[Rfam]
RNA sequence: CGUCUGUAAGGGCAAAGCCGUUCGAAAGACGGUGACGCAAAGCCUCCGGUCCUCUGGCGCCGCUGUUCCAGCAGCCGCUCCAAAGAUAGCGGGGUUGCCGUU
Numbered sequence: 001c002g003u004c005u006g007u008a009a010g011g012g013c014a015a016a017g018c019c020g021u022u023c024g025a026a027a028g029a030c031g032g033u034g035a036c037g038c039a040a041a042g043c044c045u046c047c048g049g050u051c052c053u054c055u056g057g058c059g060c061c062g063c064u065g066u067u068c069c070a071g072c073a074g075c076c077g078c079u080c081c082a083a084a085g086a087u088a089g090c091g092g093g094g095u096u097g098c099c100g101u102u
Stems, first nucleotide, its partner, number of pairs: 012038002017033004022029002041096004046092003049087003056081002059078001
c-di-GMP-I riboswitch aptamer: a 102-nucleotide RNA from Steroidobacter agaridevorans. It scores 59 bits against the family's covariance model.